[Rfam]
RNA: U4 spliceosomal RNA
RNA sequence: AGCUUUGCGCAGUGGCAGUAUCGUAGCCAAUGAAGUUUAUCCGAGGCGCGAUUAUUGCUAAUUGAAAGAGUUGAAAUCCAUACAUGGUUUUUAUACAGUAGACAUUUUCAUUAACUUUUUGAAGAUCCAUUCUAUUUGUGAAUCUUUCAAUAAAAG
Numbered sequence: 001a002g003c004u005u006u007g008c009g010c011a012g013u014g015g016c017a018g019u020a021u022c023g024u025a026g027c028c029a030a031u032g033a034a035g036u037u038u039a040u041c042c043g044a045g046g047c048g049c050g051a052u053u054a055u056u057g058c059u060a061a062u063u064g065a066a067a068g069a070g071u072u073g074a075a076a077u078c079c080a081u082a083c084a085u086g087g088u089u090u091u092u093a094u095a096c097a098g099u100a101g102a103c104a105u106u107u108u109c110a111u112u113a114a115c116u117u118u119u120u121g122a123a124g125a126u127c128c129a130u131u132c133u134a135u136u137u138g139u140g141a142a143u144c145u146u147u148c149a150a151u152a153a154a155a156g
Stems, first nucleotide, its partner, number of pairs: 020052005026047003035041001082130001085129003089125004145156003